[Rfam]
RNA sequence: AGUCUCGUUAACUCGCAAUUAAGAGGUUGCAGUUAAGGUGUCAUUAUUCAGAUUCUUCUGGAUUUUGCAGAGCGGUUCUCCCUCUGUUUGACGCCUCCCUGUUAACUUCGAGAGCCGUGGUUCACGGCUCUUUUUCU
Number, nucleotide and partner (000 for none) at each position: 001a000002g042003u000004c040005u000006c000007g000008u000009u000010a000011a000012c000013u000014c000015g000016c000017a000018a000019u000020u035021a034022a033023g000024a000025g030026g000027u000028u000029g000030c025031a000032g000033u022034u021035a020036a000037g000038g000039u000040g004041u000042c002043a000044u000045u000046a000047u062048u061049c060050a059051g000052a000053u000054u000055c000056u000057u000058c000059u050060g049061g048062a047063u000064u000065u000066u000067g000068c000069a000070g084071a083072g082073c000074g081075g080076u000077u000078c000079u000080c075081c074082c072083u071084c070085u000086g000087u000088u000089u000090g103091a102092c101093g100094c000095c000096u000097c000098c000099c000100u093101g092102u091103u090104a000105a000106c000107u000108u000109c000110g132111a131112g130113a129114g128115c127116c126117g125118u124119g123120g000121u000122u000123c119124a118125c117126g116127g115128c114129u113130c112131u111132u110133u000134u000135u000136c000137u000